[Rfam]
RNA: mir-965 microRNA precursor family
Organism: Diatraea saccharalis
RNA sequence: UGACUAAACGGGAGAAGUUAUGACGCUAUAUGUUAUAUUUCUAGUCAUAAGCGUAUAGCUUUUCCCCUUGGUCA
Numbered sequence: 001u002g003a004c005u006a007a008a009c010g011g012g013a014g015a016a017g018u019u020a021u022g023a024c025g026c027u028a029u030a031u032g033u034u035a036u037a038u039u040u041c042u043a044g045u046c047a048u049a050a051g052c053g054u055a056u057a058g059c060u061u062u063u064c065c066c067c068u069u070g071g072u073c074a
Base pairs, nucleotide, nucleotide: 003072004071005070006069007068010066011065012064014062015061018058019057020056021055022054026051027050029049030048031047032046
Dot-bracket structure: ..(((((..(((.((..(((((...((.((((.............))))))..)))))..)).))).)))))..